[Rfam]
RNA sequence: CUCGCCGCAGUGCCUGACGGGAGGCGGAGCGGCGAACGAGGCCGUCGGCCAUUUUGUAUCUGUUUCCUGUGGGACGCGGUUGGU
Numbered sequence: 001c002u003c004g005c006c007g008c009a010g011u012g013c014c015u016g017a018c019g020g021g022a023g024g025c026g027g028a029g030c031g032g033c034g035a036a037c038g039a040g041g042c043c044g045u046c047g048g049c050c051a052u053u054u055u056g057u058a059u060c061u062g063u064u065u066c067c068u069g070u071g072g073g074a075c076g077c078g079g080u081u082g083g084u
Stems, first nucleotide, its partner, number of pairs: 002082001004080005010075002014073002017070012029057004034050001037047003

Record summary
mir-632 microRNA precursor family: an 84-nucleotide sequence from Carlito syrichta. The literature on the family includes a 2010 paper in BMC Res Notes by Brameier, "Genome-wide comparative analysis of microRNAs in three non-human primates". The family has 8 seed sequences and 126 matches in Rfam 15.1. The organism belongs to Carlito, within Eukaryota. The family's consensus secondary structure was predicted with RNAalifold.